This 265-nucleotide RNA from Alkaliphilus metalliredigens belongs to the Rfam family "Bacterial large signal recognition particle RNA".
Lineage of the source: Bacteria > Bacillota > Clostridia > Peptostreptococcales > Alkaliphilus metalliredigens.
It is annotated as a non-coding RNA gene.

[Rfam]
RNA sequence: CUGUGCUAGACGGGGAGGUAGCGGUGCCCUGUAACCUGCAAUCCGCUAUAGCAGGGUUGAAUUCCUCAUGGAGGCUUGUUGCUUGUAGGGCUGGCCUAGAUAAGUGGUGAUGAGAAUUGGGUCCUACGCAAUGAAAACUCAUGAACUCCGUCAGAUCCGGAAGGAAGCAGCGGUAAGUGAUCCCUUUCGUGUGCCGUAGGGUAACCUGAUUUGAGCUAACUGUUUGGGUAUCGCCUAUGAGCACAUGUCGAAUUGAGGUGCACAG
Numbered sequence: 001c002u003g004u005g006c007u008a009g010a011c012g013g014g015g016a017g018g019u020a021g022c023g024g025u026g027c028c029c030u031g032u033a034a035c036c037u038g039c040a041a042u043c044c045g046c047u048a049u050a051g052c053a054g055g056g057u058u059g060a061a062u063u064c065c066u067c068a069u070g071g072a073g074g075c076u077u078g079u080u081g082c083u084u085g086u087a088g089g090g091c092u093g094g095c096c097u098a099g100a101u102a103a104g105u106g107g108u109g110a111u112g113a114g115a116a117u118u119g120g121g122u123c124c125u126a127c128g129c130a131a132u133g134a135a136a137a138c139u140c141a142u143g144a145a146c147u148c149c150g151u152c153a154g155a156u157c158c159g160g161a162a163g164g165a166a167g168c169a170g171c172g173g174u175a176a177g178u179g180a181u182c183c184c185u186u187u188c189g190u191g192u193g194c195c196g197u198a199g200g201g202u203a204a205c206c207u208g209a210u211u212u213g214a215g216c217u218a219a220c221u222g223u224u225u226g227g228g229u230a231u232c233g234c235c236u237a238u239g240a241g242c243a244c245a246u247g248u249c250g251a252a253u254u255g256a257g258g259u260g261c262a263c264a265g
Stems, first nucleotide, its partner, number of pairs: 001265006009058003012030004017025001019023001035055005064258005073249003077245001080243010094229001096227006104220002106217003114212009123200006129191002132189005139180004148173004156165003